Shown here is a 140-nucleotide sequence from Xenorhabdus bovienii, a member of the family "Yersinia sRNA 155(RyfD)". The pairing is the family consensus, mapped onto this sequence.
[Rfam]
RNA sequence: UAGGACGAUUUCUGGCGUAUAGUGGCUAGUUUCCAAUUAACUUUUCAGAGUACCUUGAAUAUUUAAGGAAUGACCUUAUCUAGUUUCCAGUAGCAAAUUCUGACCAGUAUUGGAGGUGUUAUGCGUCUGGAUCGUCUUAC
Numbered sequence: 001u002a003g004g005a006c007g008a009u010u011u012c013u014g015g016c017g018u019a020u021a022g023u024g025g026c027u028a029g030u031u032u033c034c035a036a037u038u039a040a041c042u043u044u045u046c047a048g049a050g051u052a053c054c055u056u057g058a059a060u061a062u063u064u065a066a067g068g069a070a071u072g073a074c075c076u077u078a079u080c081u082a083g084u085u086u087c088c089a090g091u092a093g094c095a096a097a098u099u100c101u102g103a104c105c106a107g108u109a110u111u112g113g114a115g116g117u118g119u120u121a122u123g124c125g126u127c128u129g130g131a132u133c134g135u136c137u138u139a140c
Stems, first nucleotide, its partner, number of pairs: 002138010014127006021120003025045001028042003032039001053068006070079003083117010

The sRNA was identified by and is confirmed to have a stable secondary structure by using genome-wide structure probing at different temperatures. The function is unknown. It scores 92 bits against the family's covariance model. A reference for the family is Righetti et al. (2016), "Temperature-responsive in vitro RNA structurome of Yersinia pseudotuberculosis", Proc Natl Acad Sci U S A.